[Rfam]
RNA sequence: CUCUUAUCGAGAGAGGUGGAGGGACUGGCCCGAUGAAGCCCGGCAACCUCUGAAUGGACUACCAUUCGGAAAGGUGCCAAAUCCUGCAGGUAAUCAUGCCUGACAGAUAAGAG
Numbered sequence: 001c002u003c004u005u006a007u008c009g010a011g012a013g014a015g016g017u018g019g020a021g022g023g024a025c026u027g028g029c030c031c032g033a034u035g036a037a038g039c040c041c042g043g044c045a046a047c048c049u050c051u052g053a054a055u056g057g058a059c060u061a062c063c064a065u066u067c068g069g070a071a072a073g074g075u076g077c078c079a080a081a082u083c084c085u086g087c088a089g090g091u092a093a094u095c096a097u098g099c100c101u102g103a104c105a106g107a108u109a110a111g112a113g
Base pairs, nucleotide, nucleotide: 001113002112003111004110005109006108007107008106013041015040016039017038021031022030023029025086027084028083042078043077044076045075047074048073049070050069051068052067053066054065055064082105087102088101089100090099091098092097